[Rfam]
RNA sequence: UAAUAUUAUUGGCAAAUUUUACGAAAGUAAAAGACGCAAAGCCACGGGCCUAAUGUGAAAGCAAUGGCAGCCGGGUUGCCGAG
Numbered sequence: 001u002a003a004u005a006u007u008a009u010u011g012g013c014a015a016a017u018u019u020u021a022c023g024a025a026a027g028u029a030a031a032a033g034a035c036g037c038a039a040a041g042c043c044a045c046g047g048g049c050c051u052a053a054u055g056u057g058a059a060a061g062c063a064a065u066g067g068c069a070g071c072c073g074g075g076u077u078g079c080c081g082a083g
Base pairs, nucleotide, nucleotide: 012037013036017032018031019030020029021028022027040077041076042075043074045073046072047071048068049067050066055062056061